[Rfam]
Description:
Salmonella enterica sRNA STnc40: a 72-nucleotide RNA sequence from Klebsiella michiganensis. A search with the family's covariance model found it, with a score of 60 bits.
RNA sequence: GCAGUGCCACGGUCGCCUGAGCUAAGCUUUUACAAUAUUGAAUACCAGGGCGCAGAUAUCUGCGCCUUUUUU
Numbered sequence: 001g002c003a004g005u006g007c008c009a010c011g012g013u014c015g016c017c018u019g020a021g022c023u024a025a026g027c028u029u030u031u032a033c034a035a036u037a038u039u040g041a042a043u044a045c046c047a048g049g050g051c052g053c054a055g056a057u058a059u060c061u062g063c064g065c066c067u068u069u070u071u072u
Base pairs, nucleotide, nucleotide: 002019003018004017006013007012047068048067049066050065051064052063053062054061055060